The record is a 117-nucleotide RNA from Nicotiana attenuata, which matches "MIR162_1 microRNA precursor family" in Rfam. Taxonomically the source falls in Nicotiana (Eukaryota, Tracheophyta, Gunneridae, Solanaceae). It scores 87 bits against the family's covariance model. Its Rfam clan is "MIR167 microRNA precursor clan". On this family, see Reinhart et al., Genes Dev 2002: "MicroRNAs in plants".

RNA sequence: UUUGAGGACACUGGAAGCAGCGGUUCAUCCAUCUGUUCCCUGAACUGCUGAUAUAUACAAAAAGAAUAGCAACAGCUGGGAAUCGGUCGAUAAACCUCUGCAUCCAGCGCUUAACCC
Numbered sequence: 001u002u003u004g005a006g007g008a009c010a011c012u013g014g015a016a017g018c019a020g021c022g023g024u025u026c027a028u029c030c031a032u033c034u035g036u037u038c039c040c041u042g043a044a045c046u047g048c049u050g051a052u053a054u055a056u057a058c059a060a061a062a063a064g065a066a067u068a069g070c071a072a073c074a075g076c077u078g079g080g081a082a083u084c085g086g087u088c089g090a091u092a093a094a095c096c097u098c099u100g101c102a103u104c105c106a107g108c109g110c111u112u113a114a115c116c117c
Stems, first nucleotide, its partner, number of pairs: 013105003018100003022096004027091003031087003036082005